Shown here is a 123-nucleotide RNA sequence, a member of the family "Pseudoknot of tRNA-like structure". The literature on the family includes a 1981 paper in Cell by Ahlquist et al., "Near identity of 3- RNA secondary structure in bromoviruses and cucumber mosaic virus". By type it is a cis-regulatory element.
[Rfam]
RNA sequence: GGCGCCUUUGAAACCAUCUCCUAGGUUUCUUCGGAAGGACUUCGGUCCGUGUACUUCUAGCACAAGAUGCUAGUUUUAGAGUACGGGUGCCCCCCCCACUCUGUGGGGGGCCUCCAAAAGGAG
Numbered sequence: 001g002g003c004g005c006c007u008u009u010g011a012a013a014c015c016a017u018c019u020c021c022u023a024g025g026u027u028u029c030u031u032c033g034g035a036a037g038g039a040c041u042u043c044g045g046u047c048c049g050u051g052u053a054c055u056u057c058u059a060g061c062a063c064a065a066g067a068u069g070c071u072a073g074u075u076u077u078a079g080a081g082u083a084c085g086g087g088u089g090c091c092c093c094c095c096c097c098a099c100u101c102u103g104u105g106g107g108g109g110g111c112c113u114c115c116a117a118a119a120g121g122a123g
Stems, first nucleotide, its partner, number of pairs: 001091007010029006019123001021121002037048004051084004057073006092110008